This 269-nucleotide RNA from Brevibacillus brevis belongs to the Rfam family "Bacterial large signal recognition particle RNA". Lineage of the source: Bacteria > Bacilli > Caryophanales > Paenibacillaceae > Brevibacillus. By type it is a non-coding RNA gene. The signal recognition particle (SRP) is a universally conserved ribonucleoprotein involved in the co-translational targeting of proteins to membranes.
[Rfam]
RNA sequence: CCGUGCUAGACGGGGAGGUUGCGGUGCCCUGUAACCUGCAAUCCGCAAUAGCCAGGGUGUGAAUUCCUAUCCUAGGUUUUCUUAUGUGAGGCUGCCGUUGAUGGCGGCGGUGUUGAGGAGCGGGUCCUGUGCAACGCGAACCCAUGAACCUGGUCAGGUCCGGAAGGAAGCAGCCAUAAGUGGAUCAUCGCGUGUGCCGCAGGGUAGCCUGCUCUGAGCUGCUACCAUAAGUAACGCUCGGAUAAGGAUUAUCGAAGAUAGGUGCACGG
Numbered sequence: 001c002c003g004u005g006c007u008a009g010a011c012g013g014g015g016a017g018g019u020u021g022c023g024g025u026g027c028c029c030u031g032u033a034a035c036c037u038g039c040a041a042u043c044c045g046c047a048a049u050a051g052c053c054a055g056g057g058u059g060u061g062a063a064u065u066c067c068u069a070u071c072c073u074a075g076g077u078u079u080u081c082u083u084a085u086g087u088g089a090g091g092c093u094g095c096c097g098u099u100g101a102u103g104g105c106g107g108c109g110g111u112g113u114u115g116a117g118g119a120g121c122g123g124g125u126c127c128u129g130u131g132c133a134a135c136g137c138g139a140a141c142c143c144a145u146g147a148a149c150c151u152g153g154u155c156a157g158g159u160c161c162g163g164a165a166g167g168a169a170g171c172a173g174c175c176a177u178a179a180g181u182g183g184a185u186c187a188u189c190g191c192g193u194g195u196g197c198c199g200c201a202g203g204g205u206a207g208c209c210u211g212c213u214c215u216g217a218g219c220u221g222c223u224a225c226c227a228u229a230a231g232u233a234a235c236g237c238u239c240g241g242a243u244a245a246g247g248a249u250u251a252u253c254g255a256a257g258a259u260a261g262g263u264g265c266a267c268g269g
Base pairs, nucleotide, nucleotide: 001269002268003267004266005265006264008060010058011057012030013029014028015027017025019023035056036055037054038053066262067261068260069259070258071257075253076252077251081246082245083244084243085242087240088239089238090237093233094232098230099229100228103225106223107222109220110219111218117215118214119213120212121211122210123209124208125207126203127202128201129200130199131198132194133193135192136191137190138189139188140185142183143182144181145180151176152175153174154173159168160167161166